[Rfam]
RNA sequence: GGGCGUUCCUAGGGGUGCACGCUAUUGCAACGGCGGGCUGAGAUUGGGAUUUAUCCCUGACCCUUAGAACCUGAUCCGGGUCAUGCCGGCGCAGGGAAUGGAAUAGACGCCGCCA
Numbered sequence: 001g002g003g004c005g006u007u008c009c010u011a012g013g014g015g016u017g018c019a020c021g022c023u024a025u026u027g028c029a030a031c032g033g034c035g036g037g038c039u040g041a042g043a044u045u046g047g048g049a050u051u052u053a054u055c056c057c058u059g060a061c062c063c064u065u066a067g068a069a070c071c072u073g074a075u076c077c078g079g080g081u082c083a084u085g086c087c088g089g090c091g092c093a094g095g096g097a098a099u100g101g102a103a104u105a106g107a108c109g110c111c112g113c114c115a
Stems, first nucleotide, its partner, number of pairs: 006103004011064004017038002020035004046057004070095004076089004

Description:
TPP riboswitch aptamer (THI element): a 115-nucleotide RNA sequence from Limibacillus halophilus. Rfam describes the family as follows. Vitamin B(1) in its active form thiamin pyrophosphate (TPP) is an essential coenzyme that is synthesised by coupling of pyrimidine and thiazole moieties in bacteria. For this family Rfam cites "Comparative genomics of thiamin biosynthesis in procaryotes. New genes and regulatory mechanisms" (Rodionov et al., J Biol Chem, 2002). Lineage of the source: Bacteria > Pseudomonadati > Alphaproteobacteria > Rhodospirillales > Limibacillus.